RNA sequence: AGCAGCCGUUAGGGGUGCUCGGAAUUCCGGGCUGAGAAAAACCCUUUAAACCUGAUCUGGGUAAUGCCAGCGUAGGGAAAUGGUUGUGGGUAAGG
Numbered sequence: 001a002g003c004a005g006c007c008g009u010u011a012g013g014g015g016u017g018c019u020c021g022g023a024a025u026u027c028c029g030g031g032c033u034g035a036g037a038a039a040a041a042c043c044c045u046u047u048a049a050a051c052c053u054g055a056u057c058u059g060g061g062u063a064a065u066g067c068c069a070g071c072g073u074a075g076g077g078a079a080a081u082g083g084u085u086g087u088g089g090g091u092a093a094g095g
Stems, first nucleotide, its partner, number of pairs: 006083005011045004016039001017032005051076004057070004
The record is a 95-nucleotide RNA from Desulforhabdus amnigena, which matches "TPP riboswitch aptamer (THI element)" in Rfam.
The base pairs follow the family's consensus structure, which is taken from published work.
It scores 78 bits against the family's covariance model.